The record is a 62-nucleotide sequence from Dipodomys ordii, which matches "U7 small nuclear RNA" in Rfam. Pairs were carried over by alignment from the consensus structure, which was predicted with PFOLD. Rfam describes the family as follows. Animal histone pre-mRNAs are spliced by a different mechanism than nuclear pre-mRNAs and self-splicing introns. This processing involves the U7 snRNP, which contains only one RNA species: U7. It scores 41 bits against the family's covariance model.
[Rfam]
RNA sequence: AAGUGUUGCAGUUGUUUUAGAUUUUGUCCAGAAGGUUUUCUGGUUUCUGCUAGAGAACAUCA
Numbered sequence: 001a002a003g004u005g006u007u008g009c010a011g012u013u014g015u016u017u018u019a020g021a022u023u024u025u026g027u028c029c030a031g032a033a034g035g036u037u038u039u040c041u042g043g044u045u046u047c048u049g050c051u052a053g054a055g056a057a058c059a060u061c062a
Stems, first nucleotide, its partner, number of pairs: 035058010